RNA sequence: UAAUGUCUAAGACAGAUCCUCAUCUAGUUGUGACAGACCCACACAUGACUGCUCAUAAUCACUUGUUAUCGCAAGCCCAACUACAUCAUUGACACUUAAAAAACAUAUUUGGAAGAAAAAAAAUUAUAAAGUUAUGGUUUUUAUAUGAA
Number, nucleotide and partner (000 for none) at each position: 001u000002a000003a000004u000005g000006u148007c147008u145009a144010a141011g000012a139013c000014a000015g000016a135017u134018c000019c000020u000021c131022a000023u129024c000025u126026a125027g124028u123029u122030g000031u000032g000033a000034c000035a000036g000037a000038c000039c000040c000041a000042c000043a000044c000045a000046u000047g000048a000049c000050u000051g000052c000053u000054c000055a000056u000057a000058a000059u000060c000061a000062c000063u000064u000065g000066u000067u000068a000069u000070c000071g000072c000073a000074a000075g000076c000077c000078c000079a000080a000081c000082u000083a000084c000085a000086u000087c000088a000089u000090u000091g000092a000093c000094a000095c000096u000097u000098a000099a000100a000101a000102a000103a000104c000105a000106u000107a000108u000109u000110u000111g000112g000113a000114a000115g000116a000117a000118a000119a000120a000121a000122a029123a028124u027125u026126a025127u000128a000129a023130a000131g021132u000133u000134a017135u016136g000137g000138u000139u012140u000141u010142u000143a000144u009145a008146u000147g007148a006149a000
RNA: MIR480 microRNA precursor family